The record is a 62-nucleotide RNA from Leptobrachium leishanense, which matches "Rubella virus 3' cis-acting element" in Rfam.
[Rfam]
RNA sequence: CACCAGCCAGCCGCGAUCGCGGCUGGCUGGUGGACCCCUGCUAAGCGGCACAGGGGCGGAUC
Numbered sequence: 001c002a003c004c005a006g007c008c009a010g011c012c013g014c015g016a017u018c019g020c021g022g023c024u025g026g027c028u029g030g031u032g033g034a035c036c037c038c039u040g041c042u043a044a045g046c047g048g049c050a051c052a053g054g055g056g057c058g059g060a061u062c
Stems, first nucleotide, its partner, number of pairs: 001032004006027009033062002041059001

The base pairs follow the family's consensus structure, which is taken from published work. Rfam's curators write: This family represents a cis-acting element found at the 3' UTR in the rubella virus.